Description: Rfam assigns this 66-nucleotide RNA from Lentibacillus populi to the family "Bacillaceae-1 RNA". By type it is a small RNA. A search with the family's covariance model found it, with a score of 43 bits. The family has 95 seed sequences and 5,721 matches in Rfam 15.1. The source organism's lineage runs through Bacteria, Bacillati, Bacillota, Caryophanales and Lentibacillus.
RNA sequence: CGGUAGGAAUGUUCGGUUAAAACCGCCGCUUUGCGCGGCAACACCGAACCACCCGCAUUGCGCGGG
Numbered sequence: 001c002g003g004u005a006g007g008a009a010u011g012u013u014c015g016g017u018u019a020a021a022a023c024c025g026c027c028g029c030u031u032u033g034c035g036c037g038g039c040a041a042c043a044c045c046g047a048a049c050c051a052c053c054c055g056c057a058u059u060g061c062g063c064g065g066g
Base pairs, nucleotide, nucleotide: 011049012048013047014046015045016044017043025039026038027037028036029035052066053065054064055063056062